[Rfam]
RNA: Eukaryotic large subunit ribosomal RNA, nucleotides 3900 to 4347
RNA sequence: GAACCCCGUUGUCGCAAUAGUAAUCCUGCUCAGUACGAGAGGAACCGCAGGUUCAGUCAUUUAGUGUAUGUGCUUGGCUGAGGAGCCAAUGGGGCAAAGCUACCAUCUGUGGGAUUAUGACUGAACGCCUCUAAGUCAGAAUCCCUCCUAAACGUGAGGAUACCGCAGUGCCAAGGAGCCCAGGUUGGCCUGGGAUAGCCGGGGCGGCCACCGAUCCCCGGGGGGAGAACCCCGGCCCGGCGCCCCGGCGUGUAGAGCCGCACGCCUCGGGGCCGGAGCGCGGUCGGAAAGCCCCGCCGCCGCUCUCCCGGAGCACAUCGCACGUUCGUUGGGAACCCGGUGCUAAAUCAUUCGUAGACGACCCGAUUCUGGGUCAGGGUUUCGUACGUAGCAGAGCAGCUACCUCGCUGCGAUCUAUUGAAAGUCAUCCAUCGAGUGAAGCUUUUGU
Numbered sequence: 001g002a003a004c005c006c007c008g009u010u011g012u013c014g015c016a017a018u019a020g021u022a023a024u025c026c027u028g029c030u031c032a033g034u035a036c037g038a039g040a041g042g043a044a045c046c047g048c049a050g051g052u053u054c055a056g057u058c059a060u061u062u063a064g065u066g067u068a069u070g071u072g073c074u075u076g077g078c079u080g081a082g083g084a085g086c087c088a089a090u091g092g093g094g095c096a097a098a099g100c101u102a103c104c105a106u107c108u109g110u111g112g113g114a115u116u117a118u119g120a121c122u123g124a125a126c127g128c129c130u131c132u133a134a135g136u137c138a139g140a141a142u143c144c145c146u147c148c149u150a151a152a153c154g155u156g157a158g159g160a161u162a163c164c165g166c167a168g169u170g171c172c173a174a175g176g177a178g179c180c181c182a183g184g185u186u187g188g189c190c191u192g193g194g195a196u197a198g199c200c201g202g203g204g205c206g207g208c209c210a211c212c213g214a215u216c217c218c219c220g221g222g223g224g225g226a227g228a229a230c231c232c233c234g235g236c237c238c239g240g241c242g243c244c245c246c247g248g249c250g251u252g253u254a255g256a257g258c259c260g261c262a263c264g265c266c267u268c269g270g271g272g273c274c275g276g277a278g279c280g281c282g283g284u285c286g287g288a289a290a291g292c293c294c295c296g297c298c299g300c301c302g303c304u305c306u307c308c309c310g311g312a313g314c315a316c317a318u319c320g321c322a323c324g325u326u327c328g329u330u331g332g333g334a335a336c337c338c339g340g341u342g343c344u345a346a347a348u349c350a351u352u353c354g355u356a357g358a359c360g361a362c363c364c365g366a367u368u369c370u371g372g373g374u375c376a377g378g379g380u381u382u383c384g385u386a387c388g389u390a391g392c393a394g395a396g397c398a399g400c401u402a403c404c405u406c407g408c409u410g411c412g413a414u415c416u417a418u419u420g421a422a423a424g425u426c427a428u429c430c431a432u433c434g435a436g437u438g439a440a441g442c443u444u445u446u447g448u
Base pairs, nucleotide, nucleotide: 008161009160010159012157013156014155015154018150019149020148023053025051026050027049028048029047054109055108056107062102063101064100069096070095071094073092074089075088076087077086078085079084111145112144113143118138119137120136121135122134170341171340172339345446346445347444351365354362372437374435375434378430379429381424382423388418389417390416391415393414396411397410398409399408400407